[Rfam]
RNA sequence: CCUAGGGCUUCGCCCUAGGCUGGUAUAGAACGCGCCUUCAGCGCU
Numbered sequence: 001c002c003u004a005g006g007g008c009u010u011c012g013c014c015c016u017a018g019g020c021u022g023g024u025a026u027a028g029a030a031c032g033c034g035c036c037u038u039c040a041g042c043g044c045u
Base pairs, nucleotide, nucleotide: 001019002018003017004016005015006014007013008012032044033043034042035041
This 45-nucleotide RNA from Granulicella sp. WH15 belongs to the Rfam family "Acido-Lenti-1 RNA". Taxonomically the source falls in Granulicella (Bacteria, Pseudomonadati, Terriglobia, Acidobacteriaceae). The family's RNA type in Rfam is small RNA. The base pairs follow the family's consensus structure, which is taken from published work.